[Rfam]
RNA sequence: UAGUAGUCGGAUGGAUCGAGAGAUGAACGGCGAGGCGCAGGGCAGAGAUUAAUAGAAGGAGUAGCAGUAUUGUAGGAGGAUAAUAAACCACAUGGGAUAUAGAAGAAUAUCCCAAUCCUCGAAAUGGCGGUAGAGGAGAUAGUGCGUAUCAUUUGAUAAGGGCGUCGUGAACGACAGGAAAUACUUCCUGGAUCGGCUUUCUGUAACUCCUAUGUGUACAGGGCGAUGAGGUGAGUUGAGAGACUUAGUGUACACCUACA
Number, nucleotide and partner (000 for none) at each position: 001u000002a000003g000004u000005a000006g031007u030008c029009g028010g000011a000012u000013g000014g000015a024016u023017c022018g000019a000020g000021a000022g017023a016024u015025g000026a000027a000028c009029g008030g007031c006032g000033a000034g000035g000036c000037g000038c000039a000040g000041g000042g000043c000044a000045g000046a000047g000048a000049u000050u000051a000052a000053u000054a000055g000056a000057a000058g000059g000060a000061g000062u000063a000064g000065c000066a000067g000068u000069a000070u000071u000072g000073u000074a000075g000076g000077a000078g000079g000080a000081u000082a000083a000084u000085a000086a000087a000088c000089c169090a168091c167092a000093u114094g113095g112096g111097a110098u109099a108100u107101a000102g000103a000104a000105g000106a000107a100108u099109a098110u097111c096112c095113c094114a093115a000116u137117c136118c135119u134120c133121g000122a000123a000124a000125u000126g000127g000128c000129g000130g000131u000132a000133g120134a119135g118136g117137a116138g166139a165140u164141a000142g163143u162144g000145c160146g000147u158148a157149u156150c000151a000152u000153u000154u000155g000156a149157u148158a147159a000160g145161g000162g143163c142164g140165u139166c138167g091168u090169g089170a000171a000172c195173g194174a193175c000176a000177g000178g000179a000180a000181a000182u000183a000184c000185u000186u000187c000188c000189u000190g000191g000192a000193u174194c173195g172196g000197c000198u000199u000200u000201c000202u000203g000204u000205a000206a000207c000208u000209c000210c000211u000212a000213u000214g255215u254216g253217u252218a251219c250220a249221g000222g000223g000224c000225g000226a000227u000228g000229a000230g000231g000232u000233g246234a245235g244236u243237u242238g000239a000240g000241a000242g237243a236244c235245u234246u233247a000248g000249u220250g219251u218252a217253c216254a215255c214256c000257u000258a000259c000260a000
Clostridiales-3 RNA: a 260-nucleotide sequence from Coprococcus eutactus. Pairs were carried over by alignment from the consensus structure, which is taken from published work.